[Rfam]
RNA sequence: AGCUUGAUGAUGAUUGUCUUAUAUGAUUACUUUUCUAAUGAGUAAAAUGAAAACAACUUCACCGGCUCUGAAAGCU
Dot-bracket structure: (((((..................................................................)))))
RNA: Small nucleolar RNA SNORD102